[Rfam]
RNA: SAM riboswitch aptamer (S box leader)
RNA sequence: CUCUUAUUCAGAGUGGUGGAGUCAGAAGGGACUACGAAGCCACGGCAACCCCAUUGUUAUUUGGAAGGUGCCGGCCUGAAGCGAGUUGAGAUACUCGGUCAAUAAGAG
Number, nucleotide and partner (000 for none) at each position: 001c108002u107003c106004u105005u104006a103007u102008u101009c000010a000011g000012a000013g043014u042015g041016g040017u039018g000019g000020a000021g032022u031023c030024a000025g000026a000027a000028g000029g077030g023031a022032c021033u000034a000035c000036g000037a000038a000039g017040c016041c015042a014043c013044g072045g071046c070047a069048a000049c068050c067051c064052c063053a062054u000055u000056g000057u000058u000059a000060u000061u000062u053063g052064g051065a000066a000067g050068g049069u047070g046071c045072c044073g000074g000075c000076c000077u029078g000079a000080a000081g000082c097083g096084a095085g094086u093087u000088g000089a000090g000091a000092u000093a086094c085095u084096c083097g082098g000099u000100c000101a008102a007103u006104a005105a004106g003107a002108g001